[Rfam]
RNA sequence: UGAAGCUCUCGAUAUGACACAUCAAUCUGCUGCAUUGAUGUGCGACCUGCAGUGUCUAUCGAUGGCGUUA
Numbered sequence: 001u002g003a004a005g006c007u008c009u010c011g012a013u014a015u016g017a018c019a020c021a022u023c024a025a026u027c028u029g030c031u032g033c034a035u036u037g038a039u040g041u042g043c044g045a046c047c048u049g050c051a052g053u054g055u056c057u058a059u060c061g062a063u064g065g066c067g068u069u070a
Base pairs, nucleotide, nucleotide: 001070002069003068005066006065007064010061011060012059013058014057021039022038023037024036025035026034044056045055046054
RNA: bZIP non canonical Hac1/Xbp1 intron
Organism: Tuber magnatum